[Rfam]
RNA sequence: CUGCAGUGAUGACCAGCUUAGGACACCUUUGGAUUUGUCAUGAAAACAGUUGCACGGGAUCUGAGCAGU
Numbered sequence: 001c002u003g004c005a006g007u008g009a010u011g012a013c014c015a016g017c018u019u020a021g022g023a024c025a026c027c028u029u030u031g032g033a034u035u036u037g038u039c040a041u042g043a044a045a046a047c048a049g050u051u052g053c054a055c056g057g058g059a060u061c062u063g064a065g066c067a068g069u
Stems, first nucleotide, its partner, number of pairs: 001068004

Rfam assigns this 69-nucleotide sequence from Ophiophagus hannah to the family "Small nucleolar RNA SNORD58". The family has 33 seed sequences and 2,484 matches in Rfam 15.1. Its Rfam clan is "SNORD58 clan". By type it is a C/D-box small nucleolar RNA. snoRNA U58 is found in introns 1, 3 and 6 of the ribosomal protein RPL17 gene in humans. The family's consensus secondary structure was predicted with PFOLD. The match comes from Rfam's covariance-model search (65 bits). Its family is annotated with RNA processing and nucleolus in the Gene Ontology.